RNA sequence: GGCGUAAAGAGCUCGUAGGCGGCUUGUCACGUCGGUUGUGAAAGCCCGGGGCUUAACCCCGGGUCUGCAGUCGAUACGGGCAGGCUAGAGUUCGGUAGGGGAGAUCGGAAUUCCUGGUGUAGCGGUGAAAUGCGCAGAUAUCAGGAGGAACACCGGUGGCGAAGGCGGAUCUCUGGGCCGAUACUGACGCUGAGGAGCGAAAGCGUGGGGAGCGAACAGGAUUAGAUACCCUGGUAGUCCACGCCGUAAACGGUGGGCACUAGGUGUGGGCAACAUUCCACGUUGUCCGUGCCGCAGCUAACGCAUUAAGUGCCCCGCCUGGGGAGUACGGCCGCAAGGCUAAAACUCAAAGGAAU
Numbered sequence: 001g002g003c004g005u006a007a008a009g010a011g012c013u014c015g016u017a018g019g020c021g022g023c024u025u026g027u028c029a030c031g032u033c034g035g036u037u038g039u040g041a042a043a044g045c046c047c048g049g050g051g052c053u054u055a056a057c058c059c060c061g062g063g064u065c066u067g068c069a070g071u072c073g074a075u076a077c078g079g080g081c082a083g084g085c086u087a088g089a090g091u092u093c094g095g096u097a098g099g100g101g102a103g104a105u106c107g108g109a110a111u112u113c114c115u116g117g118u119g120u121a122g123c124g125g126u127g128a129a130a131u132g133c134g135c136a137g138a139u140a141u142c143a144g145g146a147g148g149a150a151c152a153c154c155g156g157u158g159g160c161g162a163a164g165g166c167g168g169a170u171c172u173c174u175g176g177g178c179c180g181a182u183a184c185u186g187a188c189g190c191u192g193a194g195g196a197g198c199g200a201a202a203g204c205g206u207g208g209g210g211a212g213c214g215a216a217c218a219g220g221a222u223u224a225g226a227u228a229c230c231c232u233g234g235u236a237g238u239c240c241a242c243g244c245c246g247u248a249a250a251c252g253g254u255g256g257g258c259a260c261u262a263g264g265u266g267u268g269g270g271c272a273a274c275a276u277u278c279c280a281c282g283u284u285g286u287c288c289g290u291g292c293c294g295c296a297g298c299u300a301a302c303g304c305a306u307u308a309a310g311u312g313c314c315c316c317g318c319c320u321g322g323g324g325a326g327u328a329c330g331g332c333c334g335c336a337a338g339g340c341u342a343a344a345a346c347u348c349a350a351a352g353g354a355a356u
Stems, first nucleotide, its partner, number of pairs: 001319003009316001011198004016192001018191003022085007030078002032074009045063007089185003092181005100174007107151001111147008122133003159166002203244006212238002217233004255315006263293012297304002321348003330341004